About this RNA: Shown here is a 164-nucleotide sequence from Paenibacillus roseus, a member of the family "FMN riboswitch aptamer (RFN element)". The organism belongs to Paenibacillus, within Bacteria. Rfam links the family to the GO term FMN binding. It scores 111 bits against the family's covariance model. The RFN element is a highly conserved domain that is found frequently in the 5'-untranslated regions of prokaryotic mRNAs that encode for flavin mononucleotide (FMN) biosynthesis and transport proteins.
RNA sequence: AGUUCCUUUCGGGGUCGGGUGAAAAUCCCAACCGGCGGUGAUCGCUAAUCAAUUUUUUUGAUGGCGUUAGUCCGUGACCCGUUGUCAUUCUUUUGCUUUUUGAUGACGGUGGAUCUGGUGCAAUUCCAGAACCGACAGUAUAGUCUGGAUGGGAGAAGGGAAAA
Numbered sequence: 001a002g003u004u005c006c007u008u009u010c011g012g013g014g015u016c017g018g019g020u021g022a023a024a025a026u027c028c029c030a031a032c033c034g035g036c037g038g039u040g041a042u043c044g045c046u047a048a049u050c051a052a053u054u055u056u057u058u059u060g061a062u063g064g065c066g067u068u069a070g071u072c073c074g075u076g077a078c079c080c081g082u083u084g085u086c087a088u089u090c091u092u093u094u095g096c097u098u099u100u101u102g103a104u105g106a107c108g109g110u111g112g113a114u115c116u117g118g119u120g121c122a123a124u125u126c127c128a129g130a131a132c133c134g135a136c137a138g139u140a141u142a143g144u145c146u147g148g149a150u151g152g153g154a155g156a157a158g159g160g161a162a163a164a
Stems, first nucleotide, its partner, number of pairs: 003162008017029003031144002033134002035075004070132002079109007114130005136147003